RNA sequence: AGGCCCGUAGCUCAGUUGGUUAGAGCGCGCGCUUGAUAAGCGUGAGGUCGACAGUUCAAAUCUGUCCGGGCCUA
Numbered sequence: 001a002g003g004c005c006c007g008u009a010g011c012u013c014a015g016u017u018g019g020u021u022a023g024a025g026c027g028c029g030c031g032c033u034u035g036a037u038a039a040g041c042g043u044g045a046g047g048u049c050g051a052c053a054g055u056u057c058a059a060a061u062c063u064g065u066c067c068g069g070g071c072c073u074a
Base pairs, nucleotide, nucleotide: 001073002072003071004070005069006068007067010026011025012024013023028044029043030042031041032040050066051065052064053063054062